[Rfam]
RNA sequence: CCGACUGCUCUGAACUCCAGUUCCAGAUGAGUCUCUGGGAACCCAGACUCAUACGAGAAGAAACUGGACUGUCUGGCAGCGGGCGGA
Numbered sequence: 001c002c003g004a005c006u007g008c009u010c011u012g013a014a015c016u017c018c019a020g021u022u023c024c025a026g027a028u029g030a031g032u033c034u035c036u037g038g039g040a041a042c043c044c045a046g047a048c049u050c051a052u053a054c055g056a057g058a059a060g061a062a063a064c065u066g067g068a069c070u071g072u073c074u075g076g077c078a079g080c081g082g083g084c085g086g087a
Base pairs, nucleotide, nucleotide: 001086002085005082006081007080008079009078010076011075012074014072015071016068017067018066019065020064021063022059024057027052028051029050030049031048034047035046036045037044038043

Rfam assigns this 87-nucleotide RNA sequence from Myotis myotis to the family "mir-9230 microRNA precursor family". Its family is annotated with miRNA-mediated post-transcriptional gene silencing and RISC complex in the Gene Ontology.